The record is a 96-nucleotide sequence from Aeromicrobium sp. IC_218, which matches "TPP riboswitch aptamer (THI element)" in Rfam. Pairs were carried over by alignment from the consensus structure, which is taken from published work.
RNA sequence: UCCGAACGGCCGGGGUGCCCCACCGACGGGGCUGAGAUCACACCCGCACACCUGAUUCGGUUCGUACCGACGGAGGGAGCCCGAUGACUGUCACGU
Number, nucleotide and partner (000 for none) at each position: 001u000002c000003c000004g000005a000006a000007c083008g082009g081010c000011c046012g045013g044014g043015g000016u040017g032018c031019c030020c029021c028022a000023c000024c000025g000026a000027c000028g021029g020030g019031g018032c017033u000034g000035a000036g000037a000038u000039c000040a016041c000042a000043c014044c013045c012046g011047c000048a000049c000050a000051c076052c075053u074054g000055a000056u000057u070058c069059g068060g067061u000062u000063c000064g000065u000066a000067c060068c059069g058070a057071c000072g000073g000074a053075g052076g051077g000078a000079g000080c000081c009082c008083g007084a000085u000086g000087a000088c000089u000090g000091u000092c000093a000094c000095g000096u000